[Rfam]
RNA: c-di-AMP riboswitch aptamer (ydaO/yuaA leader)
Organism: Cohnella thailandensis
RNA sequence: ACGCUAAAUCUGCCAAAACCUGCAAAGGUGCGGGGGAAUCGAUUUGCCGCGCGAUCCGGCCGAGCCGACAAUCGCGCUUGGGGUGAAUCGCACGGUUACGUGCGCAGGUCUGAUCUCCCAGUCCGAACCCGACAACUAACCUCGCCGGCUAUUAACCAAGGAGGA
Number, nucleotide and partner (000 for none) at each position: 001a000002c000003g000004c000005u000006a000007a000008a000009u000010c000011u000012g149013c148014c147015a000016a000017a000018a029019c028020c027021u000022g000023c000024a000025a000026a000027g020028g019029u018030g145031c144032g143033g142034g141035g140036g000037a000038a000039u000040c080041g079042a000043u000044u000045u000046g000047c000048c000049g000050c000051g000052c000053g000054a000055u000056c000057c000058g000059g000060c000061c000062g000063a000064g000065c000066c000067g000068a000069c000070a000071a000072u000073c000074g000075c000076g000077c000078u000079u041080g040081g130082g129083g128084u000085g000086a000087a000088u000089c104090g103091c102092a101093c000094g000095g000096u000097u000098a000099c000100g000101u092102g091103c090104g089105c000106a000107g124108g123109u000110c121111u000112g000113a000114u000115c000116u000117c000118c000119c000120a000121g110122u000123c108124c107125g000126a000127a000128c083129c082130c081131g000132a000133c000134a000135a000136c000137u000138a000139a000140c035141c034142u033143c032144g031145c030146c000147g014148g013149c012150u000151a000152u000153u000154a000155a000156c000157c000158a000159a000160g000161g000162a000163g000164g000165a000